About this RNA: Rfam assigns this 125-nucleotide RNA sequence from Urocolius indicus to the family "Small nucleolar RNA ACA64". The literature on the family includes a 2006 paper in RNA by Schattner et al., "A computational screen for mammalian pseudouridylation guide H/ACA RNAs". NCBI's taxonomy places the organism under Eukaryota, Sauria, Coelurosauria, Telluraves, Urocolius. Rfam 15.1 lists 9,537 matches to the family in 620 species. Rfam classes the family as an H/ACA-box small nucleolar RNA. Rfam links the family to the GO terms RNA processing and nucleolus.
[Rfam]
RNA sequence: ACGAUCUGAAAAUCACCGUAGGUCUGCUGUGGCCCCUGGUGAGAUAACCGUGCCGACAGCAUAGGGAACACUACGCUUAUUGCCCACGGGUGUGCGUGGGCAGUAAAACCCGUGUUCCUAUAACG
Numbered sequence: 001a002c003g004a005u006c007u008g009a010a011a012a013u014c015a016c017c018g019u020a021g022g023u024c025u026g027c028u029g030u031g032g033c034c035c036c037u038g039g040u041g042a043g044a045u046a047a048c049c050g051u052g053c054c055g056a057c058a059g060c061a062u063a064g065g066g067a068a069c070a071c072u073a074c075g076c077u078u079a080u081u082g083c084c085c086a087c088g089g090g091u092g093u094g095c096g097u098g099g100g101c102a103g104u105a106a107a108a109c110c111c112g113u114g115u116u117c118c119u120a121u122a123a124c125g
Base pairs, nucleotide, nucleotide: 006050008048010045013042014041015040016039021034022033023032024031065118067116068115069114070113071112077106078105079104080103081102085098086097087096
Dot-bracket structure: .....(.(.(..((((....((((......))))....))))..)..).)..............(.(((((.....(((((...(((........)))...))))).....))))).).......